[Rfam]
RNA sequence: GGUAAUAAAUGUGAUUUAUAAUAGAUGUUUUGCGGACUCGGGGGCGGUACCCGACAUCUCCACCAUUUUACAAUUAGUAUUGAGGGGGUGAAAAAGCUUCGACGCGCAUAGUAAAAAAAUUAUUUUUACCCGGUAAGAUACAGCCGGUUUGGUUUAGCAAUAAAUUAAAUAUUAGUUCGAAACAAAUAAACGCAAAAAAAACUUUUGCUAAUGAUAAUAUUGCCUCUUCA
Numbered sequence: 001g002g003u004a005a006u007a008a009a010u011g012u013g014a015u016u017u018a019u020a021a022u023a024g025a026u027g028u029u030u031u032g033c034g035g036a037c038u039c040g041g042g043g044g045c046g047g048u049a050c051c052c053g054a055c056a057u058c059u060c061c062a063c064c065a066u067u068u069u070a071c072a073a074u075u076a077g078u079a080u081u082g083a084g085g086g087g088g089u090g091a092a093a094a095a096g097c098u099u100c101g102a103c104g105c106g107c108a109u110a111g112u113a114a115a116a117a118a119a120u121u122a123u124u125u126u127u128a129c130c131c132g133g134u135a136a137g138a139u140a141c142a143g144c145c146g147g148u149u150u151g152g153u154u155u156a157g158c159a160a161u162a163a164a165u166u167a168a169a170u171a172u173u174a175g176u177u178c179g180a181a182a183c184a185a186a187u188a189a190a191c192g193c194a195a196a197a198a199a200a201a202c203u204u205u206u207g208c209u210a211a212u213g214a215u216a217a218u219a220u221u222g223c224c225u226c227u228u229c230a
Base pairs, nucleotide, nucleotide: 001130002129003128004127005126014120015119016118017117026108027107028106032105033104034103038054039053040052041051042050055090056089057088058087059086060085061084131146132145133144134143
Shown here is a 230-nucleotide RNA sequence from a Rickettsiales bacterium, a member of the family "permuted transfer-messenger RNA". Bacterial tmRNA, also known as 10Sa RNA or SsrA, is named for its dual tRNA and mRNA-like properties. Its role is to liberate the mRNA from a stalled ribosome. To accomplish this part of the tmRNA is used as a reading frame that ends in a translation stop signal. The family's RNA type in Rfam is non-coding RNA gene. The family's consensus secondary structure is taken from published work.